[Rfam]
RNA sequence: AGUGCCACGGGAUCGACUCCGCGGGUCACCACGAGGUAGUCGCGGAUGGCGAUACCGUGGCGGUUCUC
Numbered sequence: 001a002g003u004g005c006c007a008c009g010g011g012a013u014c015g016a017c018u019c020c021g022c023g024g025g026u027c028a029c030c031a032c033g034a035g036g037u038a039g040u041c042g043c044g045g046a047u048g049g050c051g052a053u054a055c056c057g058u059g060g061c062g063g064u065u066c067u068c
Stems, first nucleotide, its partner, number of pairs: 005062001008059002011030001013028001015027004035056004040052004